[Rfam]
RNA sequence: GUCUUGUCGAUGAUCCAUCUCCUCCUCCCAAGGAUCGUCGGCCCAAGGCCUACAGACCUCCUCCUCCCGUCUGUCGGCCAGAAUCAAGAGCCUGUCGCACCUCCUCCCGCGACAGGCUCUUUUU
Numbered sequence: 001g002u003c004u005u006g007u008c009g010a011u012g013a014u015c016c017a018u019c020u021c022c023u024c025c026u027c028c029c030a031a032g033g034a035u036c037g038u039c040g041g042c043c044c045a046a047g048g049c050c051u052a053c054a055g056a057c058c059u060c061c062u063c064c065u066c067c068c069g070u071c072u073g074u075c076g077g078c079c080a081g082a083a084u085c086a087a088g089a090g091c092c093u094g095u096c097g098c099a100c101c102u103c104c105u106c107c108c109g110c111g112a113c114a115g116g117c118u119c120u121u122u123u124u
Stems, first nucleotide, its partner, number of pairs: 007041003011037006047079004052074005088119011
A member of the RNA family "Alphaproteobacterial ar14" from Xaviernesmea oryzae, 124 nucleotides long. Pairs were carried over by alignment from the consensus structure. Smr14C2 was renamed NfeR1 (Nodule Formation Efficiency RNA) highly expressed in salt stress and during the symbiotic interaction on legume roots. The organism belongs to Xaviernesmea, within Bacteria. Rfam 15.1 lists 784 matches to the family in 332 species.